Source information
This 77-nucleotide RNA belongs to the Rfam family "L13-Bacteroidia ribosomal protein leader". The family's consensus secondary structure is taken from published work. The sequence is in the family's curated seed alignment. It is annotated as a cis-regulatory leader.
RNA sequence: UGGGGAGAGACUUAGAAUCCCCACGGGUUGAUGUGUGAAUAGCUGUGUCUUUGGCCGGGCGCGGUGGUUCGAGAAUC
Numbered sequence: 001u002g003g004g005g006a007g008a009g010a011c012u013u014a015g016a017a018u019c020c021c022c023a024c025g026g027g028u029u030g031a032u033g034u035g036u037g038a039a040u041a042g043c044u045g046u047g048u049c050u051u052u053g054g055c056c057g058g059g060c061g062c063g064g065u066g067g068u069u070c071g072a073g074a075a076u077c
Base pairs, nucleotide, nucleotide: 001023002022003021004020005019006018036071037070038069039068040067042065043064044063045062046061047060048059049058050057